[Rfam]
RNA sequence: AAUAUUUUUAGUUUUGGUAUUAGUGUCUAAAUCGUCAUUCUUAUUUCUCCUAUAAACCUCGGUUAGUUUCGCCGGGGUUUUU
Numbered sequence: 001a002a003u004a005u006u007u008u009u010a011g012u013u014u015u016g017g018u019a020u021u022a023g024u025g026u027c028u029a030a031a032u033c034g035u036c037a038u039u040c041u042u043a044u045u046u047c048u049c050c051u052a053u054a055a056a057c058c059u060c061g062g063u064u065a066g067u068u069u070c071g072c073c074g075g076g077g078u079u080u081u082u
Base pairs, nucleotide, nucleotide: 056078057077058076059075060074061073062072063071
Dot-bracket structure: .......................................................((((((((.......))))))))....